[Rfam]
RNA sequence: GGCUGGUCAUAGUGCAGUGGUUUUUGGUUUUUACAACUAAUUGAUCACAAACGGUUACAAAUUUCUUUGUUCUUUUUUCAAUAACACUGUUCCACUUGACUAGCCAAUA
Numbered sequence: 001g002g003c004u005g006g007u008c009a010u011a012g013u014g015c016a017g018u019g020g021u022u023u024u025u026g027g028u029u030u031u032u033a034c035a036a037c038u039a040a041u042u043g044a045u046c047a048c049a050a051a052c053g054g055u056u057a058c059a060a061a062u063u064u065c066u067u068u069g070u071u072c073u074u075u076u077u078u079c080a081a082u083a084a085c086a087c088u089g090u091u092c093c094a095c096u097u098g099a100c101u102a103g104c105c106a107a108u109a
Stems, first nucleotide, its partner, number of pairs: 001105008011096001014093001016088004021083001035071003039067002
Y RNA: a 109-nucleotide RNA from Chlorocebus sabaeus.
Y RNAs are components of the Ro ribonucleoprotein particle (Ro RNP), in association with Ro60 and La proteins. The Y RNAs and Ro60 and La proteins are well conserved, but the function of the Ro RNP is not known. In humans the RNA component can be one of four small RNAs -- hY1, hY3, hY4 and hY5.
By type it is a non-coding RNA gene.